[Rfam]
RNA sequence: AAUCAGAUACACAACUGGCGGAAACAGUAUUUGCGAACCAAAGAGACAGCAACUGCUGUGUAGGACAACCUACAGGGAGUGUAUGGUCAUUGAAAAGCCGACCGUCUGGGCAAUGUUA
Numbered sequence: 001a002a003u004c005a006g007a008u009a010c011a012c013a014a015c016u017g018g019c020g021g022a023a024a025c026a027g028u029a030u031u032u033g034c035g036a037a038c039c040a041a042a043g044a045g046a047c048a049g050c051a052a053c054u055g056c057u058g059u060g061u062a063g064g065a066c067a068a069c070c071u072a073c074a075g076g077g078a079g080u081g082u083a084u085g086g087u088c089a090u091u092g093a094a095a096a097g098c099c100g101a102c103c104g105u106c107u108g109g110g111c112a113a114u115g116u117u118a
Base pairs, nucleotide, nucleotide: 004086007084008083009082010081011080012079015076016075017106018105019104020103021102061072062071063070064069097111098110099109
RNA: ZMP/ZTP riboswitch aptamer (pfl RNA motif)